[Rfam]
Shown here is a 58-nucleotide RNA from Pyrobaculum islandicum, a member of the family "Pyrobaculum sRNA 210". It is annotated as an H/ACA-box small nucleolar RNA. Its family is annotated with RNA processing in the Gene Ontology. Taxonomically the source falls in Pyrobaculum islandicum (Archaea, Thermoproteota, Thermoproteales, Pyrobaculum).
RNA sequence: UGGGCUUGACAGCCGCGUCUGCGGUUGUAUGACAAGCCCGCCCGCGGCCGAGUGUACA
Number, nucleotide and partner (000 for none) at each position: 001u040002g039003g038004g037005c036006u035007u000008g000009a000010c000011a000012g025013c024014c023015g022016c021017g000018u000019c000020u000021g016022c015023g014024g013025u012026u000027g000028u000029a000030u000031g000032a000033c000034a000035a006036g005037c004038c003039c002040g001041c000042c000043c000044g000045c000046g000047g000048c000049c000050g000051a000052g000053u000054g000055u000056a000057c000058a000